Annotation:
The record is an 87-nucleotide RNA from Macaca mulatta, which matches "mir-515 microRNA precursor family" in Rfam. A reference for the family is Bentwich et al. (2005), "Identification of hundreds of conserved and nonconserved human microRNAs", Nat Genet. The sequence is in the family's curated seed alignment. Rfam links the family to the GO terms miRNA-mediated post-transcriptional gene silencing and RISC complex. Lineage of the source: Eukaryota > Teleostomi > Euteleostomi > Cercopithecidae > Macaca. Clan: mir-290 clan.

RNA sequence: UCUCAGGCUGUGACCCUCUAGAGGGAAGCACUUUAUCUUGUGUGAAAGGAAAGAAAGCGCUUCCCUUCAGAGGAUUACUCUUUGAGA
Dot-bracket structure: (((((.(..((((..(((..(((((((((.((((...((...........)).)))).)))))))))..)))..))))..).)))))